[Rfam]
RNA sequence: GUUGAAAAGCAGAAGCACCCGCUUCUCGCCUAAGGAGCCGAUAGCCCUGGGCAGACGAAAUGGAAUUAUUCAAUUAAAACGAAUGUUUUCAUGAGCGGGGCACUGAUGGUGUUCCGCUUUUGUUUUUCUUA
Numbered sequence: 001g002u003u004g005a006a007a008a009g010c011a012g013a014a015g016c017a018c019c020c021g022c023u024u025c026u027c028g029c030c031u032a033a034g035g036a037g038c039c040g041a042u043a044g045c046c047c048u049g050g051g052c053a054g055a056c057g058a059a060a061u062g063g064a065a066u067u068a069u070u071c072a073a074u075u076a077a078a079a080c081g082a083a084u085g086u087u088u089u090c091a092u093g094a095g096c097g098g099g100g101c102a103c104u105g106a107u108g109g110u111g112u113u114c115c116g117c118u119u120u121u122g123u124u125u126u127u128c129u130u131a
Stems, first nucleotide, its partner, number of pairs: 011026006028052003035047001037045002094118010
Rfam assigns this 131-nucleotide sequence from Lactococcus termiticola to the family "Ribosomal protein L20 leader". On this family, see Zengel and Lindahl, Prog Nucleic Acid Res Mol Biol 1994: "Diverse mechanisms for regulating ribosomal protein synthesis in Escherichia coli". It is annotated as a cis-regulatory leader. About the family: This family is a putative r-protein leader autoregulatory structure found in B. subtilis and other low-GC Gram-positive bacteria.